Rfam assigns this 112-nucleotide sequence from Peribacillus muralis to the family "SAM riboswitch aptamer (S box leader)". It scores 77 bits against the family's covariance model.
[Rfam]
RNA sequence: UUCUUAUCAAGAGAUGUGGAGGGACUUGGCCCUAUGAUACCUCGGCAGCGGGUUUUUACUUUUGUAAAAAUACUGUGCUAAUUCCAACGGACGAAAGUUUGAAAGAUAAGAA
Numbered sequence: 001u002u003c004u005u006a007u008c009a010a011g012a013g014a015u016g017u018g019g020a021g022g023g024a025c026u027u028g029g030c031c032c033u034a035u036g037a038u039a040c041c042u043c044g045g046c047a048g049c050g051g052g053u054u055u056u057u058a059c060u061u062u063u064g065u066a067a068a069a070a071u072a073c074u075g076u077g078c079u080a081a082u083u084c085c086a087a088c089g090g091a092c093g094a095a096a097g098u099u100u101g102a103a104a105g106a107u108a109a110g111a112a
Stems, first nucleotide, its partner, number of pairs: 001112008013043002016040002021032003026087004044079004049075002051071001053069004083104001088101005